[Rfam]
RNA sequence: AACCACACUAUCGAUGAAUGGAUUCACCCGUGAGAUGACGUGGUUGCUCCAUCUAGGAUGAUGACGUGGUAUAUCCUAUUAAUUUCGUGAGAUGGCUGGUAAUAGGAUAUCAUGUCCUCGUCCUAUGUGAAAGAGCCACAUCAUCUCGCGGGUGAAUCCAUUCAUUGAUAGUGUGGUU
Numbered sequence: 001a002a003c004c005a006c007a008c009u010a011u012c013g014a015u016g017a018a019u020g021g022a023u024u025c026a027c028c029c030g031u032g033a034g035a036u037g038a039c040g041u042g043g044u045u046g047c048u049c050c051a052u053c054u055a056g057g058a059u060g061a062u063g064a065c066g067u068g069g070u071a072u073a074u075c076c077u078a079u080u081a082a083u084u085u086c087g088u089g090a091g092a093u094g095g096c097u098g099g100u101a102a103u104a105g106g107a108u109a110u111c112a113u114g115u116c117c118u119c120g121u122c123c124u125a126u127g128u129g130a131a132a133g134a135g136c137c138a139c140a141u142c143a144u145c146u147c148g149c150g151g152g153u154g155a156a157u158c159c160a161u162u163c164a165u166u167g168a169u170a171g172u173g174u175g176g177u178u
Stems, first nucleotide, its partner, number of pairs: 001178007009170007017162003021158008030149004035144004041138005048131001051128002054125002057122002063116003071110011
Source information: MIR807 microRNA precursor family: a 178-nucleotide RNA sequence from Oryza glumipatula. The organism belongs to Oryza, within Eukaryota. The family has 30 seed sequences and 1,514 matches in Rfam 15.1. Gene Ontology terms of the family: RISC complex and miRNA-mediated post-transcriptional gene silencing. The match comes from Rfam's covariance-model search (147 bits).